[Rfam]
The record is a 117-nucleotide sequence from Neogale vison, which matches "Small nucleolar RNA SNORA32" in Rfam. A search with the family's covariance model found it, with a score of 67 bits. Taxonomically the source falls in Neogale (Eukaryota, Deuterostomia, Euteleostomi, Laurasiatheria). Rfam classes the family as an H/ACA-box small nucleolar RNA. ACA32 is a member of the H/ACA class of snoRNA that guide the sites of modification of uridines to pseudouridines. The base pairs follow the family's consensus structure, which was predicted with RNAfold.
RNA sequence: CAGUCAUUACCAAGGCUCUGAGAACGCAGUUCCUCAUCUGCUGUGGACACAACCGUAAAAACAUCUUCCCACUACGUCUCCUCCUCCUCGCUAGCCCUCAGCCUACUGGGAACAACA
Numbered sequence: 001c002a003g004u005c006a007u008u009a010c011c012a013a014g015g016c017u018c019u020g021a022g023a024a025c026g027c028a029g030u031u032c033c034u035c036a037u038c039u040g041c042u043g044u045g046g047a048c049a050c051a052a053c054c055g056u057a058a059a060a061a062c063a064u065c066u067u068c069c070c071a072c073u074a075c076g077u078c079u080c081c082u083c084c085u086c087c088u089c090g091c092u093a094g095c096c097c098u099c100a101g102c103c104u105a106c107u108g109g110g111a112a113c114a115a116c117a
Stems, first nucleotide, its partner, number of pairs: 003053002007049001010046003026041004068110004076102002083094001